[Rfam]
Nucleotides: 148
Stems, first nucleotide, its partner, number of pairs: 004145007017029003031128002033117002035065004060115002069092004097113005119131003
Number, partner (000 for none) and nucleotide at each position: 001000u002000u003000a004145u005144u006143c007142c008141u009140u010139c011000g012000g013000g014000g015000c016000a017029g018028g019027g020000u021000g022000a023000a024000a025000u026000u027019c028018c029017c030000u031128a032127c033117c034116g035065g036064c037063g038062g039000u040000g041000a042000u043000g044000a045000a046000c047000u048000u049000u050000u051000u052000a053000g054000u055000u056000c057000u058000u059000a060115g061114u062038c063037c064036g065035u066000g067000a068000c069092c070091c071090g072089u073000c074000a075000u076000u077000u078000u079000c080000u081000a082000u083000u084000g085000g086000a087000u088000g089072a090071c091070g092069g093000u094000g095000g096000a097113u098112u099111u100110g101109g102000u103000g104000a105000a106000a107000u108000u109101c110100c111099a112098a113097a114061g115060c116034c117033g118000a119131c120130a121129g122000u123000g124000a125000c126000a127032g128031u129121c130120u131119g132000g133000a134000u135000g136000g137000g138000a139010g140009a141008a142007g143006g144005a145004a146000g147000a148000g

The family of this 148-nucleotide sequence from Bacillus salacetis is "FMN riboswitch aptamer (RFN element)". Taxonomically the source falls in Bacillus (Bacteria, Bacillati, Bacillota, Bacillaceae).